Mammalian CPEB3 ribozyme: an 80-nucleotide sequence from Alligator sinensis.
The match comes from Rfam's covariance-model search (45 bits).
The mammalian CPEB3 ribozyme is a self cleaving RNA located in the second intron of the CPEB3 gene which belongs to a family of genes regulating messenger RNA polyadenylation.
On this family, see Salehi-Ashtiani et al., Science 2006: "A genomewide search for ribozymes reveals an HDV-like sequence in the human CPEB3 gene".
Gene Ontology term of the family: RNA nuclease activity.
RNA sequence: AGAGGUUGCAAGUUCAAGGCCACAGCAGAAGCAUUUGUAGUGCAGCCCUGUCAGAUGCCAGUGAAUCUGCAGAUUCUGCU
Numbered sequence: 001a002g003a004g005g006u007u008g009c010a011a012g013u014u015c016a017a018g019g020c021c022a023c024a025g026c027a028g029a030a031g032c033a034u035u036u037g038u039a040g041u042g043c044a045g046c047c048c049u050g051u052c053a054g055a056u057g058c059c060a061g062u063g064a065a066u067c068u069g070c071a072g073a074u075u076c077u078g079c080u
Base pairs, nucleotide, nucleotide: 018047019046020045024080025079026078027077028076029075030074031043032042033041052069053068054067055066056065058063